This 114-nucleotide RNA sequence from Eragrostis curvula belongs to the Rfam family "MIR5070 microRNA precursor family".
RNA sequence: UAGGGUAACCUUCGACCCACUUUAGUUCAACCAAAUGAACUAGAUUUCCAAAAUGAGCUCAUUUUGGAAAUCUAGUUCAUUUGGUUGAACUAGUGUGGGUCGGAGGUUACCCUA
Numbered sequence: 001u002a003g004g005g006u007a008a009c010c011u012u013c014g015a016c017c018c019a020c021u022u023u024a025g026u027u028c029a030a031c032c033a034a035a036u037g038a039a040c041u042a043g044a045u046u047u048c049c050a051a052a053a054u055g056a057g058c059u060c061a062u063u064u065u066g067g068a069a070a071u072c073u074a075g076u077u078c079a080u081u082u083g084g085u086u087g088a089a090c091u092a093g094u095g096u097g098g099g100u101c102g103g104a105g106g107u108u109a110c111c112c113u114a
Stems, first nucleotide, its partner, number of pairs: 002113019022093022
Dot-bracket structure: .(((((((((((((((((((.((((((((((((((((((((((............................)))))))))))))))))))))).))))))))))))))))))).
Rfam links the family to the GO terms RISC complex and miRNA-mediated post-transcriptional gene silencing. Rfam 15.1 lists 266 matches to the family in 8 species. The organism belongs to Eragrostis, within Eukaryota. Clan: MIR2863 microRNA precursor clan. It scores 108 bits against the family's covariance model.